[Rfam]
Notes:
Rfam assigns this 248-nucleotide RNA from Paraburkholderia humisilvae to the family "Group II catalytic intron D1-D4-6". About the family: Group II introns are found in rRNA, tRNA and mRNA of organelles in fungi, plants and protists, and also in mRNA in bacteria.
RNA sequence: AGAGUCAUACGUUGAAGGCCUGGCCAGCCACGGCGGCCCCGAGUCAUGCGUGUGUAUCCGCGAGGGUGCAGGCGAAGCGAAGCGAAUGACAGGGGUACGCGUCGGGCCGGGUAUUGAGCCGCGUAAUAGAGCGUCGUGGCGAAAUCCGCGAGAUGUUCGGGGUGCUGAGAUGCCAGGCAGGUAUCGAAGGCCACACCGUUGCUGCCGUAUUGGCGAGGCAGUAGUGGACCCCGCGCGGUCAGAGACCC
Numbered sequence: 001a002g003a004g005u006c007a008u009a010c011g012u013u014g015a016a017g018g019c020c021u022g023g024c025c026a027g028c029c030a031c032g033g034c035g036g037c038c039c040c041g042a043g044u045c046a047u048g049c050g051u052g053u054g055u056a057u058c059c060g061c062g063a064g065g066g067u068g069c070a071g072g073c074g075a076a077g078c079g080a081a082g083c084g085a086a087u088g089a090c091a092g093g094g095g096u097a098c099g100c101g102u103c104g105g106g107c108c109g110g111g112u113a114u115u116g117a118g119c120c121g122c123g124u125a126a127u128a129g130a131g132c133g134u135c136g137u138g139g140c141g142a143a144a145u146c147c148g149c150g151a152g153a154u155g156u157u158c159g160g161g162g163u164g165c166u167g168a169g170a171u172g173c174c175a176g177g178c179a180g181g182u183a184u185c186g187a188a189g190g191c192c193a194c195a196c197c198g199u200u201g202c203u204g205c206c207g208u209a210u211u212g213g214c215g216a217g218g219c220a221g222u223a224g225u226g227g228a229c230c231c232c233g234c235g236c237g238g239u240c241a242g243a244g245a246c247c248c
Stems, first nucleotide, its partner, number of pairs: 010035005017029003021216001023214002037095004043090004047079002049074003053070007115242001116240001118239006158233006164191003169185004196227011